[Rfam]
RNA sequence: UGGGCAGUAUCAUUGGAACUGCACCUUUAUGGAAUCCAAUAAUUGAAUUUUACUGCCUGUAUCCAUUAUGGACCAGGACAGAGGG
Numbered sequence: 001u002g003g004g005c006a007g008u009a010u011c012a013u014u015g016g017a018a019c020u021g022c023a024c025c026u027u028u029a030u031g032g033a034a035u036c037c038a039a040u041a042a043u044u045g046a047a048u049u050u051u052a053c054u055g056c057c058u059g060u061a062u063c064c065a066u067u068a069u070g071g072a073c074c075a076g077g078a079c080a081g082a083g084g085g
Base pairs, nucleotide, nucleotide: 002025003024004022005021006020007019008018010017011016053081054080055079056077057076058075059074062072063071064070
Notes: pan motif: an 85-nucleotide sequence from Desulfitobacterium metallireducens. By type it is a cis-regulatory element.